[Rfam]
RNA sequence: AUCAAUUCUAGGCCUUUUGGCUAAAAUGAAGUGUGGUAUCUGUUCUUAUCAGUUUAAUAUCUAUGUCCUUUACCUGAGGACAACGUAUUACAUUGAGUUUUGGAACAAGGAGAUAGAAUAGGAGCUUGUUUUGUCAGCUCCAUGCAUCAACCUGGCAUUGCAGUACUUCUAGGAAUAGUGUACCCCUU
Number, nucleotide and partner (000 for none) at each position: 001a000002u000003c000004a000005a000006u000007u026008c000009u024010a000011g022012g021013c020014c019015u000016u000017u000018u000019g014020g013021c012022u011023a000024a009025a000026a007027u000028g000029a000030a000031g000032u000033g000034u000035g000036g000037u000038a000039u000040c000041u000042g000043u000044u000045c000046u000047u063048a000049u000050c000051a062052g061053u000054u000055u000056a000057a000058u000059a000060u000061c052062u051063a047064u000065g081066u080067c079068c078069u077070u076071u000072a000073c000074c000075u000076g070077a069078g068079g067080a066081c065082a000083a000084c000085g000086u000087a000088u000089u000090a000091c000092a000093u000094u000095g000096a000097g000098u000099u000100u000101u000102g000103g000104a000105a000106c000107a000108a000109g141110g140111a139112g138113a000114u136115a000116g134117a000118a000119u000120a000121g132122g131123a130124g129125c000126u000127u000128g000129u124130u123131u122132u121133g000134u116135c000136a114137g000138c112139u111140c110141c109142a000143u000144g181145c180146a179147u178148c000149a176150a000151c173152c172153u171154g170155g169156c000157a000158u000159u000160g000161c000162a000163g000164u000165a000166c000167u000168u000169c155170u154171a153172g152173g151174a000175a000176u149177a000178g147179u146180g145181u144182a000183c000184c000185c000186c000187u000188u000

The record is a 188-nucleotide RNA sequence from Balaenoptera musculus, which matches "U2 spliceosomal RNA" in Rfam. Pairs were carried over by alignment from the consensus structure, which is taken from published work. The family's RNA type in Rfam is spliceosomal small nuclear RNA. A search with the family's covariance model found it, with a score of 123 bits.